[Rfam]
RNA sequence: UUAUAGGACGUUUUAGCUAUUGAACUGUUUUGUCCCUCUCUGUCAAAGAGCAAAUUGUUAUUUGACAUAGAGGGACAAUACAGUUCAAUGGCUAAAACGUUCUAUAUU
Numbered sequence: 001u002u003a004u005a006g007g008a009c010g011u012u013u014u015a016g017c018u019a020u021u022g023a024a025c026u027g028u029u030u031u032g033u034c035c036c037u038c039u040c041u042g043u044c045a046a047a048g049a050g051c052a053a054a055u056u057g058u059u060a061u062u063u064g065a066c067a068u069a070g071a072g073g074g075a076c077a078a079u080a081c082a083g084u085u086c087a088a089u090g091g092c093u094a095a096a097a098c099g100u101u102c103u104a105u106a107u108u
Base pairs, nucleotide, nucleotide: 002106003105004104005103006102011097012096013095014094015093016092017091018090019089020088021087022086023085024084025083026082027081028080029069031067032066033065034064049059050058051057052056
Rfam assigns this 108-nucleotide RNA sequence from Plutella xylostella to the family "mir-8517 microRNA precursor family". A search with the family's covariance model found it, with a score of 94 bits. The organism belongs to Plutella, within Eukaryota. The family's consensus secondary structure was predicted with RNAalifold.